[Rfam]
RNA sequence: CUCUUAUCCUGAGCUGGUGGAGGGACAGGCCCAAUGAAACCCAGCAACCUGCUAAUUAUUAAAUUAUCAUUAGAGAAGGUGCUAACCUGCAAGGAAAUCCUUGGUCGAUAAGAG
Numbered sequence: 001c002u003c004u005u006a007u008c009c010u011g012a013g014c015u016g017g018u019g020g021a022g023g024g025a026c027a028g029g030c031c032c033a034a035u036g037a038a039a040c041c042c043a044g045c046a047a048c049c050u051g052c053u054a055a056u057u058a059u060u061a062a063a064u065u066a067u068c069a070u071u072a073g074a075g076a077a078g079g080u081g082c083u084a085a086c087c088u089g090c091a092a093g094g095a096a097a098u099c100c101u102u103g104g105u106c107g108a109u110a111a112g113a114g
Base pairs, nucleotide, nucleotide: 001114002113003112004111005110006109007108008107013042016041017040018039022032023031024030026089027088028087029086043083044082045081046080048079049078050075052073053072054071055070056069090103091102092101093100094099
The record is a 114-nucleotide sequence from Bacillus coahuilensis, which matches "SAM riboswitch aptamer (S box leader)" in Rfam. NCBI's taxonomy places the organism under Bacteria, Bacillota, Caryophanales, Bacillus, Bacillus coahuilensis.